[Rfam]
RNA sequence: CAUCAGAUGACUGAAAGUAAGUAAUGGUCUCUUAAACCAAAAAAUAGUAAAUUAACGUUUACUUCUGAUGA
Numbered sequence: 001c002a003u004c005a006g007a008u009g010a011c012u013g014a015a016a017g018u019a020a021g022u023a024a025u026g027g028u029c030u031c032u033u034a035a036a037c038c039a040a041a042a043a044a045u046a047g048u049a050a051a052u053u054a055a056c057g058u059u060u061a062c063u064u065c066u067g068a069u070g071a
Stems, first nucleotide, its partner, number of pairs: 001070007010022003025039004046063005

This 71-nucleotide sequence belongs to the Rfam family "tRNA". Rfam describes the family as follows. Transfer RNA (tRNA) molecules are approximately 80 nucleotides in length. Their secondary structure includes four short double-helical elements and three loops (D, anti-codon, and T loops). Further hydrogen bonds mediate the characteristic L-shaped molecular structure. tRNAs have two regions of fundamental functional importance: the anti-codon, which is responsible for specific mRNA codon recognition, and the 3' end, to which the tRNAs corresponding amino acid is attached (by aminoacyl-tRNA synthetases). tRNAs cope with the degeneracy of the genetic code in two manners: having more than one tRNA (with a specific anti-codon) for a particular amino acid; and 'wobble' base-pairing, i.e. permitting non-standard base-pairing at the 3rd anti-codon position. It is one of the family's seed sequences. Rfam links the family to the GO term triplet codon-amino acid adaptor activity. It is annotated as a transfer RNA.